[Rfam]
RNA sequence: GCAGAAAUGAGGUCUGUCGCUUGGAGGAGAGCCUCCAAGAGGAAAGUCCGGGCAACAUCGGGCACCAUGUUUCCUAACGGGAAGCCGACGGCGACGUCGGGGAUAAGUGACAGAAAACGACCGCCUCUCAGGAGGUAAGGGUGAAAAGGCGGGGUAAGAGCCCACCGGCUCCUGUGGCGACACAGGAGGCCGCACAUCCCAUGGGUUGCAAGGCCAAAUACACCGGCAGUCAAGGGCUGCCCGUCCAUUGCCGGGGGGUAGGCUGCUUGAGCCCGCGGGCAACCGCGUGGAGUAGAUAAAUGACAGGCACCGUCUUCUCUUUAUGACAGACGGCACAUAACCCGGCUUAUAUCAUUUCUGCCGCC
Numbered sequence: 001g002c003a004g005a006a007a008u009g010a011g012g013u014c015u016g017u018c019g020c021u022u023g024g025a026g027g028a029g030a031g032c033c034u035c036c037a038a039g040a041g042g043a044a045a046g047u048c049c050g051g052g053c054a055a056c057a058u059c060g061g062g063c064a065c066c067a068u069g070u071u072u073c074c075u076a077a078c079g080g081g082a083a084g085c086c087g088a089c090g091g092c093g094a095c096g097u098c099g100g101g102g103a104u105a106a107g108u109g110a111c112a113g114a115a116a117a118c119g120a121c122c123g124c125c126u127c128u129c130a131g132g133a134g135g136u137a138a139g140g141g142u143g144a145a146a147a148g149g150c151g152g153g154g155u156a157a158g159a160g161c162c163c164a165c166c167g168g169c170u171c172c173u174g175u176g177g178c179g180a181c182a183c184a185g186g187a188g189g190c191c192g193c194a195c196a197u198c199c200c201a202u203g204g205g206u207u208g209c210a211a212g213g214c215c216a217a218a219u220a221c222a223c224c225g226g227c228a229g230u231c232a233a234g235g236g237c238u239g240c241c242c243g244u245c246c247a248u249u250g251c252c253g254g255g256g257g258g259u260a261g262g263c264u265g266c267u268u269g270a271g272c273c274c275g276c277g278g279g280c281a282a283c284c285g286c287g288u289g290g291a292g293u294a295g296a297u298a299a300a301u302g303a304c305a306g307g308c309a310c311c312g313u314c315u316u317c318u319c320u321u322u323a324u325g326a327c328a329g330a331c332g333g334c335a336c337a338u339a340a341c342c343c344g345g346c347u348u349a350u351a352u353c354a355u356u357u358c359u360g361c362c363g364c365c
Stems, first nucleotide, its partner, number of pairs: 001361010011350001012308007020039008044348003048345005053208004060242004065204005070084005085100001087098004101199002106197001107195003121140002123136005148166002151163003168190001169188008212264004223254005234246004272290002274287005
The record is a 365-nucleotide RNA from Muribaculaceae bacterium Isolate-037, which matches "Bacterial RNase P class A" in Rfam. Ribonuclease P (RNase P) is a ubiquitous endoribonuclease, found in archaea, bacteria and eukarya as well as chloroplasts and mitochondria. Its best characterised activity is the generation of mature 5'-ends of tRNAs by cleaving the 5'-leader elements of precursor-tRNAs. Cellular RNase Ps are ribonucleoproteins. RNA from bacterial RNase Ps retains its catalytic activity in the absence of the protein subunit, i.e. it is a ribozyme. Rfam links the family to the GO terms dimeric ribonuclease P complex, tRNA processing and ribonuclease P activity. Rfam classes the family as a ribozyme. A search with the family's covariance model found it, with a score of 253 bits.